[Rfam]
RNA: SAM riboswitch aptamer (S box leader)
RNA sequence: AAUUUAUAAAGAAGAGGCGAGAGAAUAGGCUCCGUGACCCUCUGGCAACCACUUAUAAAGGAAGGUGCCAAAUCCUAUCCCGGCAAAGCGGGAACAUAUAAAUU
Numbered sequence: 001a002a003u004u005u006a007u008a009a010a011g012a013a014g015a016g017g018c019g020a021g022a023g024a025a026u027a028g029g030c031u032c033c034g035u036g037a038c039c040c041u042c043u044g045g046c047a048a049c050c051a052c053u054u055a056u057a058a059a060g061g062a063a064g065g066u067g068c069c070a071a072a073u074c075c076u077a078u079c080c081c082g083g084c085a086a087a088g089c090g091g092g093a094a095c096a097u098a099u100a101a102a103u104u
Base pairs, nucleotide, nucleotide: 001104002103003102004101005100006099007098008097013043014042015041016040017039021032022031023030026077027076028075029074044069045068046067047066049065050064052060053059054058073096078093079092080091081090082089